[Rfam]
RNA sequence: UCUCCCGCUUCACCUCCCUGAGCGGGUGCCUUGACAACGUUAGGGCAUUUUGGCCCCCGGACUCCCCUUAUCCGGGGGCCCUUUGUUU
Numbered sequence: 001u002c003u004c005c006c007g008c009u010u011c012a013c014c015u016c017c018c019u020g021a022g023c024g025g026g027u028g029c030c031u032u033g034a035c036a037a038c039g040u041u042a043g044g045g046c047a048u049u050u051u052g053g054c055c056c057c058c059g060g061a062c063u064c065c066c067c068u069u070a071u072c073c074g075g076g077g078g079c080c081c082u083u084u085g086u087u088u
Stems, first nucleotide, its partner, number of pairs: 004026006028046007053079008

Background
The record is an 88-nucleotide RNA sequence from Dechloromonas aromatica, which matches "Burkholderia RNA 7 (anti-hemB)" in Rfam. By type it is a small RNA. NCBI's taxonomy places the organism under Bacteria, Pseudomonadati, Azonexaceae, Dechloromonas, Dechloromonas aromatica (nom. nud.). The sequence is in the family's curated seed alignment. On this family, see Weinberg et al., Nucleic Acids Res 2007: "Identification of 22 candidate structured RNAs in bacteria using the CMfinder comparative genomics pipeline".